[Rfam]
RNA sequence: AAUAAAAAAGCCCUGCAGAUGAUCUGCAGGGUCCUUCUAUUCUUUUGAGACAUGCUCAAAAGGAGAAGGGCAAAAAGGGAGAGGAGAAACCGGAGGAAGAACUUAUGGGGAAACGUAAGUCUUCUCCGUGG
Numbered sequence: 001a002a003u004a005a006a007a008a009a010g011c012c013c014u015g016c017a018g019a020u021g022a023u024c025u026g027c028a029g030g031g032u033c034c035u036u037c038u039a040u041u042c043u044u045u046u047g048a049g050a051c052a053u054g055c056u057c058a059a060a061a062g063g064a065g066a067a068g069g070g071c072a073a074a075a076a077g078g079g080a081g082a083g084g085a086g087a088a089a090c091c092g093g094a095g096g097a098a099g100a101a102c103u104u105a106u107g108g109g110g111a112a113a114c115g116u117a118a119g120u121c122u123u124c125u126c127c128g129u130g131g
Stems, first nucleotide, its partner, number of pairs: 011031009032079005041064006091128004096124004101120005

ylbH leader: a 131-nucleotide RNA sequence from Thermolongibacillus altinsuensis. This family is a putative regulatory RNA structure that is found upstream of the ylbH gene in B. subtilis and related low GC Gram-positive bacteria. A search with the family's covariance model found it, with a score of 105 bits. For this family Rfam cites "New RNA motifs suggest an expanded scope for riboswitches in bacterial genetic control" (Barrick et al., Proc Natl Acad Sci U S A, 2004). Taxonomically the source falls in Thermolongibacillus (Bacteria, Bacillati, Caryophanales, Anoxybacillaceae).